[Rfam]
RNA: Glycine riboswitch aptamer
RNA sequence: GCACAUCUGAAAAGCGGGCCACCACCGGUCACAGGGGCGGCUCCACCCAAGGUGCAAGUCAUGCCCCGGCGCACGUACGGGCGUGGUGAACCUCUCAGGUCCGAUGACAGAUGGGGAGGA
Numbered sequence: 001g002c003a004c005a006u007c008u009g010a011a012a013a014g015c016g017g018g019c020c021a022c023c024a025c026c027g028g029u030c031a032c033a034g035g036g037g038c039g040g041c042u043c044c045a046c047c048c049a050a051g052g053u054g055c056a057a058g059u060c061a062u063g064c065c066c067c068g069g070c071g072c073a074c075g076u077a078c079g080g081g082c083g084u085g086g087u088g089a090a091c092c093u094c095u096c097a098g099g100u101c102c103g104a105u106g107a108c109a110g111a112u113g114g115g116g117a118g119g120a
Base pairs, nucleotide, nucleotide: 002115004113005112006111007110008109009108016043017042018041019040045100046099047098049095052094054092058087059086060085061084062083063082064081065080066079